RNA sequence: CCACAGUGGUGUCUUAUGGCUUUCUAUUCCUAUGUGAGUUCUUUCUAACAUUUCAUGUAGGGUUUAAAGCCAUUGGAUUCACUGUGG
Numbered sequence: 001c002c003a004c005a006g007u008g009g010u011g012u013c014u015u016a017u018g019g020c021u022u023u024c025u026a027u028u029c030c031u032a033u034g035u036g037a038g039u040u041c042u043u044u045c046u047a048a049c050a051u052u053u054c055a056u057g058u059a060g061g062g063u064u065u066a067a068a069g070c071c072a073u074u075g076g077a078u079u080c081a082c083u084g085u086g087g
Base pairs, nucleotide, nucleotide: 002087006083009080011078012077013076014075016073017072018071019070020069021068022067023066026064028062029061030060031059032058033057034056035055036054037053
The family of this 87-nucleotide RNA from Channa argus is "mir-135 microRNA precursor family".
The literature on the family includes a 2002 paper in Curr Biol by Lagos-Quintana et al., "Identification of tissue-specific microRNAs from mouse".
It scores 72 bits against the family's covariance model.
The base pairs follow the family's consensus structure, which was predicted with PFOLD.